This 72-nucleotide RNA sequence from Atopostipes suicloacalis belongs to the Rfam family "tRNA". The family's consensus secondary structure is taken from published work. The family is grouped with related families in Rfam's "tRNA clan". The literature on the family includes a 1993 paper in Trends Biochem Sci by Hou, "The tertiary structure of tRNA and the development of the genetic code". Rfam's curators write: Transfer RNA (tRNA) molecules are approximately 80 nucleotides in length. Their secondary structure includes four short double-helical elements and three loops (D, anti-codon, and T loops). Further hydrogen bonds mediate the characteristic L-shaped molecular structure. tRNAs have two regions of fundamental functional importance: the anti-codon, which is responsible for specific mRNA codon recognition, and the 3' end, to which the tRNAs corresponding amino acid is attached (by aminoacyl-tRNA synthetases). tRNAs cope with the degeneracy of the genetic code in two manners: having more than one tRNA (with a specific anti-codon) for a particular amino acid; and 'wobble' base-pairing, i.e. permitting non-standard base-pairing at the 3rd anti-codon position. Gene Ontology term of the family: triplet codon-amino acid adaptor activity.
[Rfam]
RNA sequence: UGGGCUGUAGCCAAGCGGUAAGGCAUCGGGUUUUGAUCCCGUGUACCCUAGGUUCGAAUCCUAGCAGCCCAG
Number, nucleotide and partner (000 for none) at each position: 001u071002g070003g069004g068005c067006u066007g065008u000009a000010g024011c023012c022013a000014a000015g000016c000017g000018g000019u000020a000021a000022g012023g011024c010025a000026u000027c041028g040029g039030g038031u000032u000033u000034u000035g000036a000037u000038c030039c029040c028041g027042u000043g000044u000045a000046c000047c000048c064049u063050a062051g061052g060053u000054u000055c000056g000057a000058a000059u000060c052061c051062u050063a049064g048065c007066a006067g005068c004069c003070c002071a001072g000